[Rfam]
RNA sequence: GCCGGGAGGUUACUCCUGUUACGCCCAAUAGGGCGGGUGCGAUAAGGGGGAGUGGUUCGAUGCCUUGGACGUGCCGUGGGAACGGCGUCGAGACUGCGCGCACUCUGAGGCAUUCCCCGACAGGGGCGCUUCGUGGAAGCGGGGCGUCCCGGUCGAUAAUGAGCAGCGGAACGCGUGAGGCUGGCAACAGAGCAACGAAAAGCAGGCCGGGGAUGUUGGCAAGUGUAACACGCGGUUGAGUCGGGAACCGGGUCAACGCGUCCAAGGCAUCAUCUGCAACCCUUUUUUU
Numbered sequence: 001g002c003c004g005g006g007a008g009g010u011u012a013c014u015c016c017u018g019u020u021a022c023g024c025c026c027a028a029u030a031g032g033g034c035g036g037g038u039g040c041g042a043u044a045a046g047g048g049g050g051a052g053u054g055g056u057u058c059g060a061u062g063c064c065u066u067g068g069a070c071g072u073g074c075c076g077u078g079g080g081a082a083c084g085g086c087g088u089c090g091a092g093a094c095u096g097c098g099c100g101c102a103c104u105c106u107g108a109g110g111c112a113u114u115c116c117c118c119g120a121c122a123g124g125g126g127c128g129c130u131u132c133g134u135g136g137a138a139g140c141g142g143g144g145c146g147u148c149c150c151g152g153u154c155g156a157u158a159a160u161g162a163g164c165a166g167c168g169g170a171a172c173g174c175g176u177g178a179g180g181c182u183g184g185c186a187a188c189a190g191a192g193c194a195a196c197g198a199a200a201a202g203c204a205g206g207c208c209g210g211g212g213a214u215g216u217u218g219g220c221a222a223g224u225g226u227a228a229c230a231c232g233c234g235g236u237u238g239a240g241u242c243g244g245g246a247a248c249c250g251g252g253u254c255a256a257c258g259c260g261u262c263c264a265a266g267g268c269a270u271c272a273u274c275u276g277c278a279a280c281c282c283u284u285u286u287u288u289u
Stems, first nucleotide, its partner, number of pairs: 001038003004017005022035003041287002044284005052277004057272001060270009071259003077251001079249001083243004088238001092237007100226002104223001106221002109217009118155004123150012156160001163207002166203002174197003181190003